Rfam assigns this 205-nucleotide sequence to the family "Cyano-2 RNA".
[Rfam]
RNA sequence: GGCAGCACUGGGAGAGCGACCUGGUAGCUGGCAGAUAUAGCCCCCCUUGGCAUGAGCGAUUGCCAUGGGGAGCUUUCUGCGCUCUUCAAAUCUCUGAAAAGAGUUAGUGCAUUUGCUACAAGCCCGUGUAUCGCCGCGAGCUUGUUCAUGCGGAUACCGCAUCGCUCGAGGAGAACAGCGUUCUCCUCGCGGUUCCGUGGCCCCA
Numbered sequence: 001g002g003c004a005g006c007a008c009u010g011g012g013a014g015a016g017c018g019a020c021c022u023g024g025u026a027g028c029u030g031g032c033a034g035a036u037a038u039a040g041c042c043c044c045c046c047u048u049g050g051c052a053u054g055a056g057c058g059a060u061u062g063c064c065a066u067g068g069g070g071a072g073c074u075u076u077c078u079g080c081g082c083u084c085u086u087c088a089a090a091u092c093u094c095u096g097a098a099a100a101g102a103g104u105u106a107g108u109g110c111a112u113u114u115g116c117u118a119c120a121a122g123c124c125c126g127u128g129u130a131u132c133g134c135c136g137c138g139a140g141c142u143u144g145u146u147c148a149u150g151c152g153g154a155u156a157c158c159g160c161a162u163c164g165c166u167c168g169a170g171g172a173g174a175a176c177a178g179c180g181u182u183c184u185c186c187u188c189g190c191g192g193u194u195c196c197g198u199g200g201c202c203c204c205a
Stems, first nucleotide, its partner, number of pairs: 003030004007025006031080005037074001043070004048065005150198005156193005168188008
It is one of the family's seed sequences.